[Rfam]
RNA sequence: GCUGAGGGAUGAUGACAAUAAAAGGCCGAAUUGAAGUGUCUCUUGCAAGCAGUUCGCUCUCCUUGUAAGCACGAUGACAAAAAUCUUCCAAAGCGAAUCAUUAGUCUGACCUCAGU
Numbered sequence: 001g002c003u004g005a006g007g008g009a010u011g012a013u014g015a016c017a018a019u020a021a022a023a024g025g026c027c028g029a030a031u032u033g034a035a036g037u038g039u040c041u042c043u044u045g046c047a048a049g050c051a052g053u054u055c056g057c058u059c060u061c062c063u064u065g066u067a068a069g070c071a072c073g074a075u076g077a078c079a080a081a082a083a084u085c086u087u088c089c090a091a092a093g094c095g096a097a098u099c100a101u102u103a104g105u106c107u108g109a110c111c112u113c114a115g116u
Base pairs, nucleotide, nucleotide: 001116002115003114004113005112006111007110014106015105016104026033035102036101037100038099041096042095043093049088052072053071055069059065073087074086076084
RNA: Small nucleolar RNA SNORD89
Organism: Grus americana